The family of this 83-nucleotide RNA from Pongo abelii is "mir-4529 microRNA precursor family". The source organism's lineage runs through Eukaryota, Mammalia, Euarchontoglires, Primates and Pongo. Pairs were carried over by alignment from the consensus structure, which was predicted with RNAalifold. The match comes from Rfam's covariance-model search (91 bits).

[Rfam]
RNA sequence: CCCCAAUGACAGGCCAUCAGCAGUCCAAUGAAGACAUGAAGACCCAAUGUUGUCCUUGGUCUGCUGAUGGCCUGUCACUGGGA
Numbered sequence: 001c002c003c004c005a006a007u008g009a010c011a012g013g014c015c016a017u018c019a020g021c022a023g024u025c026c027a028a029u030g031a032a033g034a035c036a037u038g039a040a041g042a043c044c045c046a047a048u049g050u051u052g053u054c055c056u057u058g059g060u061c062u063g064c065u066g067a068u069g070g071c072c073u074g075u076c077a078c079u080g081g082g083a
Stems, first nucleotide, its partner, number of pairs: 002082004007077017025059004030054002033051005